[Rfam]
RNA sequence: GAUCAAUGAUGAAAAAUAGCCAAAUAUGAGCAUCAGGAGACCUUCUGGUCUUUGUGGUGCAUGAUUUGUAUGUGUUUCUGAGA
Numbered sequence: 001g002a003u004c005a006a007u008g009a010u011g012a013a014a015a016a017u018a019g020c021c022a023a024a025u026a027u028g029a030g031c032a033u034c035a036g037g038a039g040a041c042c043u044u045c046u047g048g049u050c051u052u053u054g055u056g057g058u059g060c061a062u063g064a065u066u067u068g069u070a071u072g073u074g075u076u077u078c079u080g081a082g083a
Base pairs, nucleotide, nucleotide: 030060031059032058033057034056038051039050040049041048
Small nucleolar RNA U2-19: an 83-nucleotide sequence from Monodelphis domestica. Taxonomically the source falls in Monodelphis (Eukaryota, Deuterostomia, Euteleostomi, Didelphimorphia). The family's RNA type in Rfam is C/D-box small nucleolar RNA. On this family, see Tycowski et al., Curr Biol 2004: "Guide RNAs with 5' Caps and Novel Box C/D snoRNA-like Domains for Modification of snRNAs in Metazoa".